[Rfam]
Nucleotides: 353
Stems, first nucleotide, its partner, number of pairs: 001316003009313001011198004016192001018191003022085007030078002032074009046062006089185003092181005100174007107151001111147008122133003159166002203244006212238002217233004255312006263290012294301002318345003327338004
Number, partner (000 for none) and nucleotide at each position: 001316g002315g003314c004000g005000u006000a007000a008000a009313g010000c011198g012197c013196g014195c015000g016192u017000a018191g019190g020189c021000g022085g023084a024083c025082u026081a027080g028079u029000c030078a031077g032074u033073u034072a035071g036070g037069g038068g039067u040066g041000a042000a043000a044000u045000c046062c047061c048060a049059g050058g051057g052000c053000u054000c055000a056000a057051c058050c059049c060048u061047g062046g063000a064000a065000c066040u067039g068038c069037c070036c071035u072034u073033a074032a075000u076000a077031c078030u079028g080027c081026u082025a083024g084023u085022c086000u087000u088000g089185a090184g091183u092181u093180c094179g095178a096177g097000a098000g099000a100174g101173g102172u103171g104170a105169g106168u107151g108000g109000a110000a111147u112146u113145c114144c115143g116142a117141g118140u119000g120000u121000a122133g123132a124131g125000g126000u127000g128000a129000a130000a131124u132123u133122c134000g135000u136000a137000g138000a139000u140118a141117u142116u143115c144114g145113g146112a147111g148000g149000a150000a151107c152000a153000c154000c155000a156000g157000u158000g159166g160165c161000g162000a163000a164000g165160g166159c167000g168106g169105c170104u171103c172102a173101c174100u175000g176000g177096c178095u179094c180093g181092a182000u183091a184090c185089u186000g187000a188000c189020g190019c191018u192016g193000a194000g195014g196013u197012g198011c199000g200000a201000a202000a203244g204243u205242g206241u207240g208239g209000g210000g211000a212238g213237c214000a215000a216000a217233c218232a219231g220230g221000a222000u223000u224000a225000g226000a227000u228000a229000c230220c231219c232218u233217g234000g235000u236000a237213g238212u239208c240207c241206a242205c243204a244203c245000c246000g247000u248000a249000a250000a251000c252000g253000a254000u255312g256311a257310a258309u259308g260307c261000c262000a263290g264289u265288c266287g267286u268285c269284g270283g271282g272281u273280a274279g275000u276000a277000u278000a279274c280273u281272a282271u283270u284269c285268g286267g287266u288265g289264a290263c291000a292000c293000a294301c295300c296000u297000a298000a299000c300295g301294g302000a303000u304000u305000a306000a307260g308259c309258a310257u311256u312255c313009c314003g315002c316001c317000u318345g319344g320343g321000g322000a323000g324000u325000a326000c327338g328337g329336u330335c331000g332000c333000a334000a335330g336329a337328u338327u339000a340000a341000a342000a343320c344319u345318c346000a347000a348000a349000g350000g351000a352000a353000u